[Rfam]
The family of this 263-nucleotide part of an RNA from Salinarchaeum sp. Harcht-Bsk1 is "Archaeal large subunit ribosomal RNA". Its Rfam clan is "LSU clan". The organism belongs to Salinarchaeum, within Archaea. The family's consensus secondary structure is taken from published work.

RNA sequence: GAGUGUGCUGGAUUGGCGAGUCUAACCCGAGCAUCGGGGAAGGCGUAGGGAAACCGACAUGGCCGCAGCGCUUUGCGCGAGGGCCGCCGUGUUCAAGCGCGGGGAGUCAAUCCGGCACGACCCGAAUCCGGGCGAUCUACGCGUGGGCAGGGUGAAGCGUGCCGAAAGGCACGUGGAGGCCCGCUAGGGUUGGUGUCUUACAAUACCCUCCCGUGAUCCACGUGUAGGGGUGAAAGGCCCAUCGAGCCCGGCAACAGCUGGUU
Numbered sequence: 001g002a003g004u005g006u007g008c009u010g011g012a013u014u015g016g017c018g019a020g021u022c023u024a025a026c027c028c029g030a031g032c033a034u035c036g037g038g039g040a041a042g043g044c045g046u047a048g049g050g051a052a053a054c055c056g057a058c059a060u061g062g063c064c065g066c067a068g069c070g071c072u073u074u075g076c077g078c079g080a081g082g083g084c085c086g087c088c089g090u091g092u093u094c095a096a097g098c099g100c101g102g103g104g105a106g107u108c109a110a111u112c113c114g115g116c117a118c119g120a121c122c123c124g125a126a127u128c129c130g131g132g133c134g135a136u137c138u139a140c141g142c143g144u145g146g147g148c149a150g151g152g153u154g155a156a157g158c159g160u161g162c163c164g165a166a167a168g169g170c171a172c173g174u175g176g177a178g179g180c181c182c183g184c185u186a187g188g189g190u191u192g193g194u195g196u197c198u199u200a201c202a203a204u205a206c207c208c209u210c211c212c213g214u215g216a217u218c219c220a221c222g223u224g225u226a227g228g229g230g231u232g233a234a235a236g237g238c239c240c241a242u243c244g245a246g247c248c249c250g251g252c253a254a255c256a257g258c259u260g261g262u263u
Stems, first nucleotide, its partner, number of pairs: 005118013020044004026038004048055002061085004068078004088101004121261002124258001128251006137227011148215001150182004157174007187212003192208002195206002229239003